[Rfam]
RNA sequence: AGCUCAUCCAGAGGGGUAGAGGGAACGGCCCUACGACACCCCGGCAACCGGCGAUGAUGACCUACCUGCGAUUUCUCUCGCGAGGACGUCUCGAUCACGGUGCUAACUCCGGCCCGCGCAGCGGGAAAGAUGAGGA
Numbered sequence: 001a002g003c004u005c006a007u008c009c010a011g012a013g014g015g016g017u018a019g020a021g022g023g024a025a026c027g028g029c030c031c032u033a034c035g036a037c038a039c040c041c042c043g044g045c046a047a048c049c050g051g052c053g054a055u056g057a058u059g060a061c062c063u064a065c066c067u068g069c070g071a072u073u074u075c076u077c078u079c080g081c082g083a084g085g086a087c088g089u090c091u092c093g094a095u096c097a098c099g100g101u102g103c104u105a106a107c108u109c110c111g112g113c114c115c116g117c118g119c120a121g122c123g124g125g126a127a128a129g130a131u132g133a134g135g136a
Stems, first nucleotide, its partner, number of pairs: 003134006013042005021031003026111003043104004048100002050096002108128001113125005
Rfam assigns this 136-nucleotide RNA sequence from Pseudonocardiaceae bacterium YIM PH 21723 to the family "SAM riboswitch aptamer (S box leader)".
The match comes from Rfam's covariance-model search (74 bits).
The source organism's lineage runs through Bacteria, Actinomycetota, Actinomycetes, Pseudonocardiales and Pseudonocardiaceae.